[Rfam]
This 54-nucleotide sequence belongs to the Rfam family "Mu-gpT-DE RNA". The family's RNA type in Rfam is small RNA. The base pairs follow the family's consensus structure, which is taken from published work.

Nucleotides: 054
Base pairs, nucleotide, nucleotide: 002043003042004041005040007026008025009024010023
Number, partner (000 for none) and nucleotide at each position: 001000c002043c003042c004041u005040g006000a007026c008025a009024g010023g011000a012000g013000c014000a015000a016000u017000c018000c019000c020000g021000c022000g023010c024009c025008u026007g027000a028000c029000a030000u031000u032000a033000g034000c035000c036000a037000c038000g039000a040005c041004a042003g043002g044000a045000g046000a047000u048000c049000g050000a051000c052000a053000u054000g